[Rfam]
RNA sequence: UUCUUAUCCAGAGAGGUGGAGGGAUAGGCCCGAUGAAACCCAGCAACCGGCAUACAAGUGCAAGGUGCUAAUUCCUACAGCUAACUGUGGUUUACAGUGGAGCUGAAAGAUGAGAG
Numbered sequence: 001u002u003c004u005u006a007u008c009c010a011g012a013g014a015g016g017u018g019g020a021g022g023g024a025u026a027g028g029c030c031c032g033a034u035g036a037a038a039c040c041c042a043g044c045a046a047c048c049g050g051c052a053u054a055c056a057a058g059u060g061c062a063a064g065g066u067g068c069u070a071a072u073u074c075c076u077a078c079a080g081c082u083a084a085c086u087g088u089g090g091u092u093u094a095c096a097g098u099g100g101a102g103c104u105g106a107a108a109g110a111u112g113a114g115a116g
Stems, first nucleotide, its partner, number of pairs: 001116008013041001015040003021031003025077004042069004047065002050061003073108001078105005

Description
The family of this 116-nucleotide RNA sequence from Andreesenella acetica is "SAM riboswitch aptamer (S box leader)".